RNA sequence: GUUCCCUGUGAUGAUUAUGACAUACCAUGCUAAUGCUGAUCAUCCCAUGAUUUGAAUGAUCUCUUCAUAUUUGAUUUCUGAGGGAACC
Numbered sequence: 001g002u003u004c005c006c007u008g009u010g011a012u013g014a015u016u017a018u019g020a021c022a023u024a025c026c027a028u029g030c031u032a033a034u035g036c037u038g039a040u041c042a043u044c045c046c047a048u049g050a051u052u053u054g055a056a057u058g059a060u061c062u063c064u065u066c067a068u069a070u071u072u073g074a075u076u077u078c079u080g081a082g083g084g085a086a087c088c
Stems, first nucleotide, its partner, number of pairs: 001087007

A member of the RNA family "Small nucleolar RNA snoR53Y" from Eucalyptus grandis, 88 nucleotides long. It scores 64 bits against the family's covariance model. Gene Ontology terms of the family: RNA processing and nucleolus. The family is grouped with related families in Rfam's "snoR53 clan".